Notes:
Rfam assigns this 61-nucleotide RNA from Spondias mombin to the family "Plastid-ccsA-ndhD-1 3UTR RNA". For this family Rfam cites "Control of plastid gene expression: 3' inverted repeats act as mRNA processing and stabilizing elements, but do not terminate transcription" (Stern and Gruissem, Cell, 1987). The family's RNA type in Rfam is cis-regulatory element. It is one of the family's seed sequences. The family's consensus secondary structure was predicted with LocARNA. Rfam's curators write: Plastid-ccsA-ndhD-1 is a non-coding RNA (ncRNA) recognised in plastids. It was found in the three prime untranslated region (3UTR) of ccsA and ndhD genes, its 3UTR location suggests a role in transcript maturation.
[Rfam]
RNA sequence: AUAAGACGGCGAGAACCUUUUGAAUCACUACAUUACUUGAUUCAAAAGGUUCUCACAAACG
Numbered sequence: 001a002u003a004a005g006a007c008g009g010c011g012a013g014a015a016c017c018u019u020u021u022g023a024a025u026c027a028c029u030a031c032a033u034u035a036c037u038u039g040a041u042u043c044a045a046a047a048g049g050u051u052c053u054c055a056c057a058a059a060c061g
Stems, first nucleotide, its partner, number of pairs: 009056001011054017